A member of the RNA family "Mammalian CPEB3 ribozyme" from Cnephaeus nilssonii, 71 nucleotides long. Lineage of the source: Eukaryota > Gnathostomata > Teleostomi > Amniota > Cnephaeus. Gene Ontology term of the family: RNA nuclease activity. The mammalian CPEB3 ribozyme is a self cleaving RNA located in the second intron of the CPEB3 gene which belongs to a family of genes regulating messenger RNA polyadenylation.
RNA sequence: AGAGGAUCACAGGGGUCUCAGCAGACACAUCACAGUCCCCAUCAGAUUCUGGUGAAUCUGUGAAUUCUGCU
Numbered sequence: 001a002g003a004g005g006a007u008c009a010c011a012g013g014g015g016u017c018u019c020a021g022c023a024g025a026c027a028c029a030u031c032a033c034a035g036u037c038c039c040c041a042u043c044a045g046a047u048u049c050u051g052g053u054g055a056a057u058c059u060g061u062g063a064a065u066u067c068u069g070c071u
Stems, first nucleotide, its partner, number of pairs: 013039003017035002020071006043060007